[Rfam]
RNA sequence: CCGCGGCGAUGAUCCCGUGGAACUCUCUCUUGCUGAUGUCUCGAGUGGAGAAACUCUUCACCAAGCUCUGAGCGGC
Number, nucleotide and partner (000 for none) at each position: 001c075002c074003g073004c072005g000006g000007c000008g000009a000010u000011g000012a000013u000014c000015c000016c000017g000018u000019g000020g000021a000022a000023c000024u000025c000026u000027c000028u000029c000030u000031u000032g000033c000034u000035g000036a000037u000038g000039u000040c000041u000042c000043g000044a000045g000046u000047g000048g000049a000050g000051a000052a000053a000054c000055u000056c000057u000058u000059c000060a000061c000062c000063a000064a000065g000066c000067u000068c000069u000070g000071a000072g004073c003074g002075g001076c000
Shown here is a 76-nucleotide RNA sequence from Balaeniceps rex, a member of the family "Small nucleolar RNA SNORD26". By type it is a C/D-box small nucleolar RNA. NCBI's taxonomy places the organism under Eukaryota, Deuterostomia, Archosauria, Pelecaniformes, Balaeniceps. Rfam 15.1 lists 451 matches to the family in 401 species. On this family, see Tycowski et al., Nature 1996: "A mammalian gene with introns instead of exons generating stable RNA products".